Shown here is a 59-nucleotide RNA from Streptomyces kaniharaensis, a member of the family "msiK RNA". A search with the family's covariance model found it, with a score of 53 bits.

RNA sequence: ACACGAACCCCUUUACUCGGAUCGUCCGGCACGUUCCUGCCGGUGAAGGAGAGCAACAA
Numbered sequence: 001a002c003a004c005g006a007a008c009c010c011c012u013u014u015a016c017u018c019g020g021a022u023c024g025u026c027c028g029g030c031a032c033g034u035u036c037c038u039g040c041c042g043g044u045g046a047a048g049g050a051g052a053g054c055a056a057c058a059a
Base pairs, nucleotide, nucleotide: 010049011048012047013046014045015044026043027042028041029040030039031038